Rfam assigns this 105-nucleotide RNA sequence from Legionella nautarum to the family "traJ-II RNA". Lineage of the source: Bacteria > Pseudomonadota > Legionellales > Legionellaceae > Legionella. Rfam 15.1 lists 174 matches to the family in 172 species.

[Rfam]
RNA sequence: GGGCAAGAUAGGUGAAGUUAGCUAACCAGUAAACUGUUUAUCUAACUUCACUUUGCCUUAUUCGCACCUUCGGCGCUCAACGGAAAAUCUUGACUCAACAAAGCU
Dot-bracket structure: (((((((((..((((((.(((..((.(((....))).))..))).))))))..(.((......((.((...)).)).....)).).)))))).))).........
Numbered sequence: 001g002g003g004c005a006a007g008a009u010a011g012g013u014g015a016a017g018u019u020a021g022c023u024a025a026c027c028a029g030u031a032a033a034c035u036g037u038u039u040a041u042c043u044a045a046c047u048u049c050a051c052u053u054u055g056c057c058u059u060a061u062u063c064g065c066a067c068c069u070u071c072g073g074c075g076c077u078c079a080a081c082g083g084a085a086a087a088u089c090u091u092g093a094c095u096c097a098a099c100a101a102a103g104c105u
Stems, first nucleotide, its partner, number of pairs: 001096003004092006012051006019044003024039002027036003054085001056083002064076002067073002
A search with the family's covariance model found it, with a score of 87 bits.
Rfam classes the family as a cis-regulatory element.